The record is a 102-nucleotide RNA, which matches "Purine riboswitch aptamer" in Rfam. It scores 70 bits against the family's covariance model.
RNA sequence: UUAAGUGUAUCUUAAUACGCUCGUAUAAUUUUGGAAAUAAGCGGUCCAAAAGUUUCUACCAAGCUACCAAAUAGUUUGACUACGAGAGAUAUGACACAACAU
Dot-bracket structure: .................(.((((((...(((((((.........)))))))........(((((((.....)))))))..)))))).)..............